[Rfam]
RNA sequence: GUUAGGCCCAAGAUACAUUCCUGUAAUGUUGGCUUGUAACCCAAGUGGGGGCAAUAAUGUGGUGGAAUAUUUGGGUUGUUCCUGAUGUUUGGCCUUUGAUGGGCUAAUAACUGGCCUGCCCUAUCCAAGUACGGAGCUGGGCCAUGUUGUCCAAAACGAAAGUAUGGGUUGCUUGGUCUUUGGAGUGGGGCGGACUGCGUGAGGCUGGUUUCACAGAGCAACGAAUAGUUCCCGCUCUAUGCAGUGGAAGAAUUGGAAUGGACCUGGCUAUGAUACCAUGUAAAUAAUGGAUCUUAGGCCUAACUCAACCCCA
Numbered sequence: 001g002u003u004a005g006g007c008c009c010a011a012g013a014u015a016c017a018u019u020c021c022u023g024u025a026a027u028g029u030u031g032g033c034u035u036g037u038a039a040c041c042c043a044a045g046u047g048g049g050g051g052c053a054a055u056a057a058u059g060u061g062g063u064g065g066a067a068u069a070u071u072u073g074g075g076u077u078g079u080u081c082c083u084g085a086u087g088u089u090u091g092g093c094c095u096u097u098g099a100u101g102g103g104c105u106a107a108u109a110a111c112u113g114g115c116c117u118g119c120c121c122u123a124u125c126c127a128a129g130u131a132c133g134g135a136g137c138u139g140g141g142c143c144a145u146g147u148u149g150u151c152c153a154a155a156a157c158g159a160a161a162g163u164a165u166g167g168g169u170u171g172c173u174u175g176g177u178c179u180u181u182g183g184a185g186u187g188g189g190g191c192g193g194a195c196u197g198c199g200u201g202a203g204g205c206u207g208g209u210u211u212c213a214c215a216g217a218g219c220a221a222c223g224a225a226u227a228g229u230u231c232c233c234g235c236u237c238u239a240u241g242c243a244g245u246g247g248a249a250g251a252a253u254u255g256g257a258a259u260g261g262a263c264c265u266g267g268c269u270a271u272g273a274u275a276c277c278a279u280g281u282a283a284a285u286a287a288u289g290g291a292u293c294u295u296a297g298g299c300c301u302a303a304c305u306c307a308a309c310c311c312c313a
Base pairs, nucleotide, nucleotide: 001052002051003050004035005034006033007032008031040049041048042047060313061312062311064310065309069305071303072302073301074299076297077296078295082290083289084288086286087285088284089283090282091277092276095273097272099271100270101269103268104267111266113264114263116261117260118259121250124248125247126246127245129242130241131240133238134237135236136235137234139179140178141177142176143175144174146172147171149169150168151167152166153165156163157162180185187232188231189230190229191228196225198223199222200221205216206215207214
Dot-bracket structure: ((((((((......................)))))....(((....)))))).......(((.((...(.((((.(((...(((.(((((((..(.(.(((.((......(.((.(((..(..((((.(((.(((((.((((((.((.(((((..((....)).))))).)).))))))(....).(((((....(.(((....(((......)))....))).)..))))).))))).)))..)))).)........))).)).))))))))..))....))))).)))....))).).))).)...)))))
A member of the RNA family "Plant signal recognition particle RNA" from Anisodus acutangulus, 313 nucleotides long.
The organism belongs to Anisodus, within Eukaryota.